Description
A member of the RNA family "tRNA" from Tetrahymena pyriformis, 71 nucleotides long. Taxonomically the source falls in Tetrahymena (Eukaryota, Ciliophora, Intramacronucleata, Hymenostomatida). Transfer RNA (tRNA) molecules are approximately 80 nucleotides in length.
[Rfam]
RNA sequence: GGGGGAAUAGUUUAACGGUAGAACAACGGUCUUCAAAAUCGUUAGCGUGGGUUCGAAUCCUGCUUCCCUCG
Numbered sequence: 001g002g003g004g005g006a007a008u009a010g011u012u013u014a015a016c017g018g019u020a021g022a023a024c025a026a027c028g029g030u031c032u033u034c035a036a037a038a039u040c041g042u043u044a045g046c047g048u049g050g051g052u053u054c055g056a057a058u059c060c061u062g063c064u065u066c067c068c069u070c071g
Stems, first nucleotide, its partner, number of pairs: 001070007010024004026042005047063005
The base pairs follow the family's consensus structure, which is taken from published work.